[Rfam]
RNA sequence: GCCCAGGUGGCGAAAUUGGUAGACGCACCAGCUUCAGGUGCUGGCGAUCGUAAGGUUGUGGGGGUUCGAGUCCCUUCCUGGGCA
Numbered sequence: 001g002c003c004c005a006g007g008u009g010g011c012g013a014a015a016u017u018g019g020u021a022g023a024c025g026c027a028c029c030a031g032c033u034u035c036a037g038g039u040g041c042u043g044g045c046g047a048u049c050g051u052a053a054g055g056u057u058g059u060g061g062g063g064g065u066u067c068g069a070g071u072c073c074c075u076u077c078c079u080g081g082g083c084a
Base pairs, nucleotide, nucleotide: 001083002082003081004080005079006078007077010026011025012024028044029043030042031041032040060076061075062074063073064072